[Rfam]
RNA sequence: CUUCAACGAGCCCAGCCACAACGGCUGUUCCGCUGAGCGGUCCUUGCCGUAGGUGGCCAGCAGUGCCUGGGCCUC
Number, nucleotide and partner (000 for none) at each position: 001c000002u000003u000004c000005a000006a000007c000008g000009a000010g000011c000012c000013c000014a026015g025016c024017c023018a000019c000020a000021a000022c000023g017024g016025c015026u014027g000028u000029u000030c000031c071032g000033c069034u000035g000036a000037g000038c065039g064040g000041u000042c000043c060044u059045u000046g000047c056048c055049g054050u000051a000052g000053g000054u049055g048056g047057c000058c000059a044060g043061c000062a000063g000064u039065g038066c000067c000068u000069g033070g000071g031072c000073c000074u000075c000

The record is a 75-nucleotide RNA sequence, which matches "ASpks TB sRNA" in Rfam.
The family has 77 seed sequences and 9,052 matches in Rfam 15.1.
By type it is an antisense RNA.
The family's consensus secondary structure is taken from published work.
The match comes from Rfam's covariance-model search (86 bits).